[Rfam]
The record is a 103-nucleotide RNA from Salimicrobium jeotgali, which matches "SAM riboswitch aptamer (S box leader)" in Rfam.
RNA sequence: CUCUUAUCCAGAGUCGGUGGAGGGACAGGCCCGAGGAAACCCGGCAACCUUCUUUUGAUAUGGUGCUAACCUGACGCAAGAGUACUCUCUUGGACGAUAAGAG
Numbered sequence: 001c002u003c004u005u006a007u008c009c010a011g012a013g014u015c016g017g018u019g020g021a022g023g024g025a026c027a028g029g030c031c032c033g034a035g036g037a038a039a040c041c042c043g044g045c046a047a048c049c050u051u052c053u054u055u056u057g058a059u060a061u062g063g064u065g066c067u068a069a070c071c072u073g074a075c076g077c078a079a080g081a082g083u084a085c086u087c088u089c090u091u092g093g094a095c096g097a098u099a100a101g102a103g
Stems, first nucleotide, its partner, number of pairs: 001103008013042001016041003022032003026076001029072001043067004048063002051058002077092006
Description
The source organism's lineage runs through Bacteria, Bacillati, Bacillota, Bacilli and Salimicrobium.